This 85-nucleotide sequence from Paenibacillus paeoniae belongs to the Rfam family "c-di-GMP-I riboswitch aptamer". The match comes from Rfam's covariance-model search (76 bits). Rfam's curators write: GEMM was predicted in a large-scale screen for bacterial structured RNA regulatory elements. The organism belongs to Paenibacillus, within Bacteria.

[Rfam]
RNA sequence: AAACGAUAAAGGCAAAGCCAUUGAAAGAUGGUGACGCAAAGCUACAGGGGCUAAGCUUAAUCUAGUAUGCCAGCCAGUUUCCAAA
Numbered sequence: 001a002a003a004c005g006a007u008a009a010a011g012g013c014a015a016a017g018c019c020a021u022u023g024a025a026a027g028a029u030g031g032u033g034a035c036g037c038a039a040a041g042c043u044a045c046a047g048g049g050g051c052u053a054a055g056c057u058u059a060a061u062c063u064a065g066u067a068u069g070c071c072a073g074c075c076a077g078u079u080u081c082c083a084a085a
Stems, first nucleotide, its partner, number of pairs: 012037002017032006040079004047075002049071003056065002